[Rfam]
RNA: Selenocysteine insertion sequence 3
Organism: Methylobacterium sp. BTF04
RNA sequence: GUUUGACACGGCCCGUCGGUCGCCAGUCUGGCGCCUUCGUUCGGUCGUGGUGCGAUGAC
Number, nucleotide and partner (000 for none) at each position: 001g000002u000003u000004u000005g000006a000007c049008a048009c047010g046011g045012c044013c043014c000015g042016u000017c000018g035019g034020u000021c033022g032023c031024c030025a029026g000027u000028c000029u025030g024031g023032c022033g021034c019035c018036u000037u000038c000039g000040u000041u000042c015043g013044g012045u011046c010047g009048u008049g007050g000051u000052g000053c000054g000055a000056u000057g000058a000059c000